Actinobacteria sRNA Ms_IGR-5: a 208-nucleotide RNA sequence from Streptomyces laurentii. The source organism's lineage runs through Bacteria, Bacillati, Actinomycetes, Streptomycetaceae and Streptomyces. For this family Rfam cites "Identification of small RNAs in Mycobacterium smegmatis using heterologous Hfq" (Li et al., RNA, 2013).

Nucleotides: 208
Stems, first nucleotide, its partner, number of pairs: 015059003019055001061109003065105002068101004073096003128202013141159006
Number, partner (000 for none) and nucleotide at each position: 001000a002000c003000a004000c005000g006000c007000g008000a009000a010000a011000g012000g013000a014000g015059g016058u017057g018000a019055u020000c021000c022000g023000a024000a025000a026000a027000c028000a029000u030000g031000a032000u033000u034000u035000c036000u037000u038000u039000u040000c041000g042000g043000a044000c045000u046000c047000g048000u049000g050000a051000g052000g053000u054000g055019a056000c057017u058016g059015c060000g061109g062108g063107c064000u065105g066104a067000g068101g069100c070099c071098u072000g073096c074095c075094g076000u077000c078000g079000c080000a081000c082000u083000c084000g085000u086000g087000u088000g089000c090000a091000g092000c093000u094075c095074g096073g097000c098071a099070g100069g101068c102000c103000g104066u105065c106000u107063g108062c109061c110000g111000a112000c113000a114000c115000c116000a117000c118000c119000g120000c121000a122000g123000u124000c125000a126000c127000c128202c129201g130200a131199c132198c133197c134196g135195u136194g137193g138192g139191c140190c141159g142158c143157c144156g145155g146154u147000c148000a149000g150000u151000c152000c153000g154146a155145c156144c157143g158142g159141c160000u161000c162000c163000c164000g165000u166000c167000c168000g169000a170000a171000c172000c173000u174000a175000g176000g177000c178000g179000g180000a181000c182000g183000g184000g185000a186000c187000c188000a189000a190140g191139g192138c193137c194136c195135a196134c197133g198132g199131g200130u201129c202128g203000u204000c205000u206000g207000c208000g